RNA sequence: UAUCGCUGCCCUUCUUGGGCGUUUCCUCCCUAGACUUGGGCCGCAUGCUUUGCAUGUGGCCCCUUUUUUUAUCUGU
Numbered sequence: 001u002a003u004c005g006c007u008g009c010c011c012u013u014c015u016u017g018g019g020c021g022u023u024u025c026c027u028c029c030c031u032a033g034a035c036u037u038g039g040g041c042c043g044c045a046u047g048c049u050u051u052g053c054a055u056g057u058g059g060c061c062c063c064u065u066u067u068u069u070u071a072u073c074u075g076u
Stems, first nucleotide, its partner, number of pairs: 008020004039061009
The record is a 76-nucleotide RNA sequence from Pseudochelatococcus contaminans, which matches "Makes More Granules Regulator RNA (mmgR)" in Rfam. Taxonomically the source falls in Pseudochelatococcus (Bacteria, Pseudomonadati, Pseudomonadota, Chelatococcaceae). A reference for the family is Corbino et al. (2005), "Evidence for a second class of S-adenosylmethionine riboswitches and other regulatory RNA motifs in alpha-proteobacteria", Genome Biol. Pairs were carried over by alignment from the consensus structure.